Rfam assigns this 178-nucleotide RNA from Paenibacillus bovis to the family "Group II catalytic intron D1-D4-5". Lineage of the source: Bacteria > Bacilli > Caryophanales > Paenibacillaceae > Paenibacillus.

[Rfam]
RNA sequence: UCUAACUUAUCACUUGAGAACUGGAAUGAUGAGAGCCAUGUUUCUCUGAAACAGUUCCGUUAAUACUCCUACAUGCGCUGUGAAGCAGUAAACAGGGUGUGAAGCUAGGUGAAGUCGGCAGAAGUUGGGCUAAGUCUAUAUUCUAGAUAUGCCUCAUGAUAUGCCGGACGGCUGAAAA
Numbered sequence: 001u002c003u004a005a006c007u008u009a010u011c012a013c014u015u016g017a018g019a020a021c022u023g024g025a026a027u028g029a030u031g032a033g034a035g036c037c038a039u040g041u042u043u044c045u046c047u048g049a050a051a052c053a054g055u056u057c058c059g060u061u062a063a064u065a066c067u068c069c070u071a072c073a074u075g076c077g078c079u080g081u082g083a084a085g086c087a088g089u090a091a092a093c094a095g096g097g098u099g100u101g102a103a104g105c106u107a108g109g110u111g112a113a114g115u116c117g118g119c120a121g122a123a124g125u126u127g128g129g130c131u132a133a134g135u136c137u138a139u140a141u142u143c144u145a146g147a148u149a150u151g152c153c154u155c156a157u158g159a160u161a162u163g164c165c166g167g168a169c170g171g172c173u174g175a176a177a178a
Base pairs, nucleotide, nucleotide: 018057019056020055021054022053023052032047033046034045035044058170059169060168061167068109069108070107071106072101073100074099075098076097078095079094080093081092116166117165118164119163120162124157125156127154128153129152130146131145132144
Annotation
Rfam 15.1 lists 720 matches to the family in 418 species. Its family is annotated with Group II intron splicing in the Gene Ontology. Pairs were carried over by alignment from the consensus structure. A search with the family's covariance model found it, with a score of 103 bits.